[Rfam]
RNA: mir-87 microRNA precursor family
RNA sequence: UACUCUUACGCCUGAAAUUUGCUUUUUACCUGGCCCUCGUGCUCUCUUACUUUGAGAAAAUAAAGGUGAGCAAAAUUUCAGGUGUGUGAGUGC
Numbered sequence: 001u002a003c004u005c006u007u008a009c010g011c012c013u014g015a016a017a018u019u020u021g022c023u024u025u026u027u028a029c030c031u032g033g034c035c036c037u038c039g040u041g042c043u044c045u046c047u048u049a050c051u052u053u054g055a056g057a058a059a060a061u062a063a064a065g066g067u068g069a070g071c072a073a074a075a076u077u078u079c080a081g082g083u084g085u086g087u088g089a090g091u092g093c
Stems, first nucleotide, its partner, number of pairs: 002091004007086001009084007017076004024070003029066003